[Rfam]
RNA: tRNA
Organism: Golovinomyces cichoracearum
RNA sequence: GGCCUGGUGGCCUAAUGGUAAGGCGCUGCUUUCCGGCAACAAAAUUGUUUGGCAGAGAUUGUGGGUUCGAGUCCCGCCUGGGUCG
Number, nucleotide and partner (000 for none) at each position: 001g084002g083003c082004c081005u080006g079007g078008u000009g000010g024011c023012c022013u021014a000015a000016u000017g000018g000019u000020a000021a013022g012023g011024c010025g000026c055027u054028g053029c052030u051031u000032u000033c000034c000035g000036g000037c000038a000039a000040c000041a000042a000043a000044a000045u000046u000047g000048u000049u000050u000051g030052g029053c028054a027055g026056a000057g000058a000059u000060u000061g077062u076063g075064g074065g073066u000067u000068c000069g000070a000071g000072u000073c065074c064075c063076g062077c061078c007079u006080g005081g004082g003083u002084c001085g000